Shown here is a 361-nucleotide RNA from Mycetocola lacteus, a member of the family "Bacterial RNase P class A".

RNA sequence: UGGGUCGGCAAGGCGAUCGCGGCAUCGGCAACGAUGACGAGGAACGUCCGGGCUCCACAGAGCAGGGCGGUGGAUAACAUCCACCCGGGGUAACCCGCGAGACAGUGCAACAGAGAAUAGACCGCCACCGGUUUUCCGGGGGUAAGGGUGAAACGGUGGGGUAAGAGCCCACCAGCGACCGGGGUGACCCGGCCGGCUUGGUAAACCUCGCUCGGAGCAAGAUCAGACAGGAAACCAUGGGGCUGCUCGUCCCGUUUCCGGGUAGAUUGCUUGAGCCCGUCGGCAACGGCGGGCCUAGAUAGAUGGUCGCCCAUGAGGGUUUCCCUCGGGACAGAACCCGGCGUAAGAGUCGGCCCAUUCC
Numbered sequence: 001u002g003g004g005u006c007g008g009c010a011a012g013g014c015g016a017u018c019g020c021g022g023c024a025u026c027g028g029c030a031a032c033g034a035u036g037a038c039g040a041g042g043a044a045c046g047u048c049c050g051g052g053c054u055c056c057a058c059a060g061a062g063c064a065g066g067g068c069g070g071u072g073g074a075u076a077a078c079a080u081c082c083a084c085c086c087g088g089g090g091u092a093a094c095c096c097g098c099g100a101g102a103c104a105g106u107g108c109a110a111c112a113g114a115g116a117a118u119a120g121a122c123c124g125c126c127a128c129c130g131g132u133u134u135u136c137c138g139g140g141g142g143u144a145a146g147g148g149u150g151a152a153a154c155g156g157u158g159g160g161g162u163a164a165g166a167g168c169c170c171a172c173c174a175g176c177g178a179c180c181g182g183g184g185u186g187a188c189c190c191g192g193c194c195g196g197c198u199u200g201g202u203a204a205a206c207c208u209c210g211c212u213c214g215g216a217g218c219a220a221g222a223u224c225a226g227a228c229a230g231g232a233a234a235c236c237a238u239g240g241g242g243c244u245g246c247u248c249g250u251c252c253c254g255u256u257u258c259c260g261g262g263u264a265g266a267u268u269g270c271u272u273g274a275g276c277c278c279g280u281c282g283g284c285a286a287c288g289g290c291g292g293g294c295c296u297a298g299a300u301a302g303a304u305g306g307u308c309g310c311c312c313a314u315g316a317g318g319g320u321u322u323c324c325c326u327c328g329g330g331a332c333a334g335a336a337c338c339c340g341g342c343g344u345a346a347g348a349g350u351c352g353g354c355c356c357a358u359u360c361c
Stems, first nucleotide, its partner, number of pairs: 001357009012311007020039002023036005044344003048341005053217004060248004065213005070084005085099001086097004100208002105206002107202002122147002124143003128139004155173006175197001176195002179192005221268004230259006239253005275294008
Taxonomically the source falls in Mycetocola (Bacteria, Bacillati, Actinomycetota, Microbacteriaceae).